The family of this 70-nucleotide RNA sequence from Pseudomonas asplenii is "narK RNA". Rfam's curators put it in the seed alignment. Pairs were carried over by alignment from the consensus structure, which is taken from published work. It is annotated as a cis-regulatory element.
[Rfam]
Nucleotides: 070
Base pairs, nucleotide, nucleotide: 030049031048032047033046034045035044036043
Number, partner (000 for none) and nucleotide at each position: 001000g002000g003000c004000a005000u006000a007000u008000g009000c010000c011000u012000u013000g014000c015000u016000a017000c018000a019000a020000c021000c022000c023000u024000g025000c026000a027000a028000a029000c030049c031048c032047u033046g034045g035044c036043c037000a038000a039000c040000g041000g042000c043036g044035g045034c046033c047032g048031g049030g050000c051000u052000g053000c054000a055000a056000g057000g058000a059000c060000a061000a062000a063000g064000a065000c066000g067000u068000c069000g070000u